[Rfam]
RNA sequence: AUGCUCACAAGAAAACACAUCCUGCCCUGUGGCUGCGAUGCUUUCUGGGACAAUGUGAGCUAGAGCAUGAGUAUUGCUUUGGGAGUGUCACAUUCCAGGCCACAUGAGACACUACAGUUUUCAAUACAACA
Numbered sequence: 001a002u003g004c005u006c007a008c009a010a011g012a013a014a015a016c017a018c019a020u021c022c023u024g025c026c027c028u029g030u031g032g033c034u035g036c037g038a039u040g041c042u043u044u045c046u047g048g049g050a051c052a053a054u055g056u057g058a059g060c061u062a063g064a065g066c067a068u069g070a071g072u073a074u075u076g077c078u079u080u081g082g083g084a085g086u087g088u089c090a091c092a093u094u095c096c097a098g099g100c101c102a103c104a105u106g107a108g109a110c111a112c113u114a115c116a117g118u119u120u121u122c123a124a125u126a127c128a129a130c131a
Stems, first nucleotide, its partner, number of pairs: 003060006013044003018040004025032002071127001073125004079117003084113006091106001093102001
This 131-nucleotide sequence from Turnix velox belongs to the Rfam family "Small Cajal body specific RNA 23". Rfam links the family to the GO terms nucleolus, Cajal body and RNA processing. Rfam's curators write: scaRNAs are a specific class of small nuclear RNAs which localise to the Cajal bodies and guide the modification of RNA polymerase II transcribed spliceosomal RNAs U1, U2, U4, U5 and U12. ACA11 belongs to the H/ACA box class of guide RNAs as it has the predicted hairpin-hinge-hairpin-tail structure,the conserved H/ACA-box motifs and is found associated with GAR1. H/ACA snRNAs are predicted to guide the modification of uridines to pseudouridines in substrate RNAs however, no target RNA has been identified for scaRNA ACA11. It scores 64 bits against the family's covariance model. The organism belongs to Turnix, within Eukaryota.